[Rfam]
About this RNA: The family of this 98-nucleotide RNA sequence from Mycobacterium heidelbergense is "Mycobacterium sRNA ncrMT1302".
RNA sequence: AAGCGACCAAUUCGAAGCGCCGGACGAUGGGGUAGGACGCCGGCCGCGUCGGACUAAGGUCCGACGCCCCCUGAAGUCGCCCGGGCCUGCCCAUGCGU
Numbered sequence: 001a002a003g004c005g006a007c008c009a010a011u012u013c014g015a016a017g018c019g020c021c022g023g024a025c026g027a028u029g030g031g032g033u034a035g036g037a038c039g040c041c042g043g044c045c046g047c048g049u050c051g052g053a054c055u056a057a058g059g060u061c062c063g064a065c066g067c068c069c070c071c072u073g074a075a076g077u078c079g080c081c082c083g084g085g086c087c088u089g090c091c092c093a094u095g096c097g098u
Stems, first nucleotide, its partner, number of pairs: 003080005020043004028035001046067004083092003
A reference for the family is Pelly et al. (2012), "A screen for non-coding RNA in Mycobacterium tuberculosis reveals a cAMP-responsive RNA that is expressed during infection", Gene.